[Rfam]
RNA sequence: UAAAAAGGUAGAGGUUGCGAUAUUUAAGAGUAGAUUUGUGGAGUUAAGCACGAAGAAGCAAAUCAAAAGGAAAUGUCGCCGAAACAUAUAACUAAUGCUUUAAAGUUAUAUCGUUGGGAUUAUACAGAAUAUGUAUAAUACUGUCAUAAAUAUUAUUUAUGGGGAGCUAUCAUGACG
Numbered sequence: 001u002a003a004a005a006a007g008g009u010a011g012a013g014g015u016u017g018c019g020a021u022a023u024u025u026a027a028g029a030g031u032a033g034a035u036u037u038g039u040g041g042a043g044u045u046a047a048g049c050a051c052g053a054a055g056a057a058g059c060a061a062a063u064c065a066a067a068a069g070g071a072a073a074u075g076u077c078g079c080c081g082a083a084a085c086a087u088a089u090a091a092c093u094a095a096u097g098c099u100u101u102a103a104a105g106u107u108a109u110a111u112c113g114u115u116g117g118g119a120u121u122a123u124a125c126a127g128a129a130u131a132u133g134u135a136u137a138a139u140a141c142u143g144u145c146a147u148a149a150a151u152a153u154u155a156u157u158u159a160u161g162g163g164g165a166g167c168u169a170u171c172a173u174g175a176c177g
Base pairs, nucleotide, nucleotide: 007171008170009169010168011167017079018078019077020076021075022074023073024072025071033064034063035062036061037060038059039058083115084114085113091107093105116142117141119139120138121137122136123135124134125133126132144162145161146160147159148158149157150156

A member of the RNA family "Lysine riboswitch aptamer" from Terrisporobacter othiniensis, 177 nucleotides long. It scores 117 bits against the family's covariance model. The base pairs follow the family's consensus structure, which is taken from published work. Lineage of the source: Bacteria > Bacillota > Peptostreptococcales > Peptostreptococcaceae > Terrisporobacter. Rfam 15.1 lists 3,224 matches to the family in 1,923 species. Rfam's curators write: Riboswitches are metabolite binding domains within certain messenger RNAs that serve as precision sensors for their corresponding targets. Allosteric rearrangement of mRNA structure is mediated by ligand binding, and this results in modulation of gene expression. This family includes riboswitches that sense lysine in a number of genes involved in lysine metabolism, including lysC.